[Rfam]
RNA sequence: AGAGUGUUAUGAUGUUGGAGGGCAACCUCCGAGUCUAGCUCGGCGCUACCCCCUGGAAGAUUUUCAGGGGG
Numbered sequence: 001a002g003a004g005u006g007u008u009a010u011g012a013u014g015u016u017g018g019a020g021g022g023c024a025a026c027c028u029c030c031g032a033g034u035c036u037a038g039c040u041c042g043g044c045g046c047u048a049c050c051c052c053c054u055g056g057a058a059g060a061u062u063u064u065c066a067g068g069g070g071g
Stems, first nucleotide, its partner, number of pairs: 002041004011035003017030005049071009

Description
The family of this 71-nucleotide RNA from Enterococcus saccharolyticus is "L17 ribosomal protein downstream element". Rfam classes the family as a cis-regulatory element. Pairs were carried over by alignment from the consensus structure, which is taken from published work. Lineage of the source: Bacteria > Bacillati > Bacilli > Enterococcus saccharolyticus > Enterococcus saccharolyticus subsp. saccharolyticus. The match comes from Rfam's covariance-model search (56 bits).